A member of the RNA family "Molybdenum/Tungsten riboswitch aptamer (Moco RNA motif)" from Alishewanella agri, 137 nucleotides long. NCBI's taxonomy places the organism under Bacteria, Pseudomonadati, Gammaproteobacteria, Alishewanella, Alishewanella agri.
[Rfam]
RNA sequence: CUUACUACACAACGCCGAAGCCACCGGCUCUAACCCUGCCUGCAGGUAUGAACGGUGUGCCGUGGUAAUAAUACCACCGGGUGUGGCGGGAAACGGCCUCACCUCCCAACCUGGAAAGGUGUCAUUAGUAUGCUUAU
Numbered sequence: 001c002u003u004a005c006u007a008c009a010c011a012a013c014g015c016c017g018a019a020g021c022c023a024c025c026g027g028c029u030c031u032a033a034c035c036c037u038g039c040c041u042g043c044a045g046g047u048a049u050g051a052a053c054g055g056u057g058u059g060c061c062g063u064g065g066u067a068a069u070a071a072u073a074c075c076a077c078c079g080g081g082u083g084u085g086g087c088g089g090g091a092a093a094c095g096g097c098c099u100c101a102c103c104u105c106c107c108a109a110c111c112u113g114g115a116a117a118g119g120u121g122u123c124a125u126u127a128g129u130a131u132g133c134u135u136a137u
Stems, first nucleotide, its partner, number of pairs: 006128001012122005020060002025055001027053001029051002035046003062077005079104005085098003089094001105114002